The record is an 84-nucleotide RNA from Cohnella faecalis, which matches "Group II catalytic intron D1-D4-1" in Rfam. On this family, see Bonen and Vogel, Trends Genet 2001: "The ins and outs of group II introns". The source organism's lineage runs through Bacteria, Bacillati, Bacillota, Paenibacillaceae and Cohnella.

RNA sequence: UAACCGCGACUGAGAAGUCGCGCUGAGUCCGCAGGAGUCAGCAGAAGCCAUAGUACGGGGUUGUUGCAACAGUCUCGGAAGGGC
Numbered sequence: 001u002a003a004c005c006g007c008g009a010c011u012g013a014g015a016a017g018u019c020g021c022g023c024u025g026a027g028u029c030c031g032c033a034g035g036a037g038u039c040a041g042c043a044g045a046a047g048c049c050a051u052a053g054u055a056c057g058g059g060g061u062u063g064u065u066g067c068a069a070c071a072g073u074c075u076c077g078g079a080a081g082g083g084c
Stems, first nucleotide, its partner, number of pairs: 001025002005022007038045002047084003056077006